[Rfam]
RNA sequence: CUGGCCCCGGUUCACGCCUGCGCAUCCACGCGACGGCGACCCGGUGCA
Numbered sequence: 001c002u003g004g005c006c007c008c009g010g011u012u013c014a015c016g017c018c019u020g021c022g023c024a025u026c027c028a029c030g031c032g033a034c035g036g037c038g039a040c041c042c043g044g045u046g047c048a
Stems, first nucleotide, its partner, number of pairs: 004047002007044004015038004021032003